Shown here is a 389-nucleotide part of an RNA from uncultured crenarchaeote, a member of the family "Archaeal large subunit ribosomal RNA".
The base pairs follow the family's consensus structure, which is taken from published work.
The sequence is in the family's curated seed alignment.
RNA sequence: GGCAGUAACAGCAUAGCCGGGUGAGAAUCUCGGCGACCGAAUGGGCAAGGGUUUCCCGGCAAUGCGUCGUCAGCCGGGAGUUAGCCGGUCCUAAGAACAACCUCAACAGAGUUGUCCGAAUGGGAAACUGGUUAAUAUUCCAGUGCCUUGAAAGAUCGUUAACACUCAUCUUGCUGCUUCCGGAUAAGGCAAGCAGAAUCGUCGUUCUGUCCAAGUUUUCGAGUUUUGGGGAGUGUCAUAAUGACGAGAUCCGAAACGAGAGAUGAAUGGUCCUCCGCAAGGAGGAUUUGCUUGAAUCCAGGAGACACUGAAAACAAGAAUGAGAAGAUUCUUUCAAGACCGUACCGAGAUCCGACACUGGUGCCCUAGAUUAGUAGUCUAAGGUCUAU
Numbered sequence: 001g002g003c004a005g006u007a008a009c010a011g012c013a014u015a016g017c018c019g020g021g022u023g024a025g026a027a028u029c030u031c032g033g034c035g036a037c038c039g040a041a042u043g044g045g046c047a048a049g050g051g052u053u054u055c056c057c058g059g060c061a062a063u064g065c066g067u068c069g070u071c072a073g074c075c076g077g078g079a080g081u082u083a084g085c086c087g088g089u090c091c092u093a094a095g096a097a098c099a100a101c102c103u104c105a106a107c108a109g110a111g112u113u114g115u116c117c118g119a120a121u122g123g124g125a126a127a128c129u130g131g132u133u134a135a136u137a138u139u140c141c142a143g144u145g146c147c148u149u150g151a152a153a154g155a156u157c158g159u160u161a162a163c164a165c166u167c168a169u170c171u172u173g174c175u176g177c178u179u180c181c182g183g184a185u186a187a188g189g190c191a192a193g194c195a196g197a198a199u200c201g202u203c204g205u206u207c208u209g210u211c212c213a214a215g216u217u218u219u220c221g222a223g224u225u226u227u228g229g230g231g232a233g234u235g236u237c238a239u240a241a242u243g244a245c246g247a248g249a250u251c252c253g254a255a256a257c258g259a260g261a262g263a264u265g266a267a268u269g270g271u272c273c274u275c276c277g278c279a280a281g282g283a284g285g286a287u288u289u290g291c292u293u294g295a296a297u298c299c300a301g302g303a304g305a306c307a308c309u310g311a312a313a314a315c316a317a318g319a320a321u322g323a324g325a326a327g328a329u330u331c332u333u334u335c336a337a338g339a340c341c342g343u344a345c346c347g348a349g350a351u352c353c354g355a356c357a358c359u360g361g362u363g364c365c366c367u368a369g370a371u372u373a374g375u376a377g378u379c380u381a382a383g384g385u386c387u388a389u
Base pairs, nucleotide, nucleotide: 016034017033018032019031020030021029035386036385037384038383043366044365045364046363049346050345054079055078056077057076058075059074063072064071086342087341088340090123091122095117097115098114099113100112102109103108127144128143129142130141131140147338148337149336150335151334152333153332154331170318171317172316177304178303179302180301182299183298184297187293188292189291190290191289193210194209195208196207197206215264216263217262218261225255226254227253228252229251230250235245236244237243276281352361353360367381368380369379370378